Source information
This 128-nucleotide sequence from Ictidomys tridecemlineatus belongs to the Rfam family "Small nucleolar RNA SNORA11". Rfam 15.1 lists 2,014 matches to the family in 202 species. The literature on the family includes a 2005 paper in Nucleic Acids Res by Gu et al., "A novel experimental approach for systematic identification of box H/ACA snoRNAs from eukaryotes". Rfam's curators put it in the seed alignment. About the family: U107 (SNORA11) is a member of the H/ACA class of snoRNAs that guide the sites of modification of uridines to pseudouridines. This snoRNA was identified by RT-PCR from blood cells and its expression confirmed by Northern blot analysis. Pairs were carried over by alignment from the consensus structure, which was predicted with RNAalifold. The family's RNA type in Rfam is H/ACA-box small nucleolar RNA.

RNA sequence: GGGGUGUGCUCAGAGCAGGGGGCCUGAAGAAUGCUUCUCUGUUUACAACACACCCAACAGGAAUAUGGGGUUAUUGUGACAAGGGCCACAAAAAUUGUGGCUUCCCUAUGAACAAAUGCCCUACAUGU
Dot-bracket structure: .(((((((....(((((((((((.........)).)))))))))....)))))))............((((...(((..((.(((.(((((...))))).))).....)).)))...)))).......